[Rfam]
RNA sequence: UUCUACUACACAAUCACGGAUCUGUGCCCGGUCGUCCUUUGUUCGCCCAGCGGAUUCAAAGUUGAUGGCCGCGGCAGCUCGAAUCACUUAUGGAACCAUUUUAAAUCGUAAUGCAUCUCCAAUUCACAGGUCCCAGAUUAAGGAACCGUCUGGAAAUCCUGAGCUCGCCGUAAAAAAGCUGAGCUCGGUGGACCAGGCGAAUUCCGUGCCUUAUAUUCCAUCCCUUUCGCCAAGAUCAUUGAUUAAUGAGGCUGAGGAAAACCAUAAGAGCUCACAUGC
Numbered sequence: 001u002u003c004u005a006c007u008a009c010a011c012a013a014u015c016a017c018g019g020a021u022c023u024g025u026g027c028c029c030g031g032u033c034g035u036c037c038u039u040u041g042u043u044c045g046c047c048c049a050g051c052g053g054a055u056u057c058a059a060a061g062u063u064g065a066u067g068g069c070c071g072c073g074g075c076a077g078c079u080c081g082a083a084u085c086a087c088u089u090a091u092g093g094a095a096c097c098a099u100u101u102u103a104a105a106u107c108g109u110a111a112u113g114c115a116u117c118u119c120c121a122a123u124u125c126a127c128a129g130g131u132c133c134c135a136g137a138u139u140a141a142g143g144a145a146c147c148g149u150c151u152g153g154a155a156a157u158c159c160u161g162a163g164c165u166c167g168c169c170g171u172a173a174a175a176a177a178g179c180u181g182a183g184c185u186c187g188g189u190g191g192a193c194c195a196g197g198c199g200a201a202u203u204c205c206g207u208g209c210c211u212u213a214u215a216u217u218c219c220a221u222c223c224c225u226u227u228c229g230c231c232a233a234g235a236u237c238a239u240u241g242a243u244u245a246a247u248g249a250g251g252c253u254g255a256g257g258a259a260a261a262c263c264a265u266a267a268g269a270g271c272u273c274a275c276a277u278g279c
Base pairs, nucleotide, nucleotide: 018133019132020131021130022129023128024127025126026075027074028073029071030070031069033067034066035065036064037061038060039059040058041057043054044052045051046050083123084122087113089111093107144202148198149197150196151195152194153193156189157188158187161186162185163184164183165182166181167179168178208271209270210268211267212266213265214264223257224256225255226254229252230251231250234244235243236242237241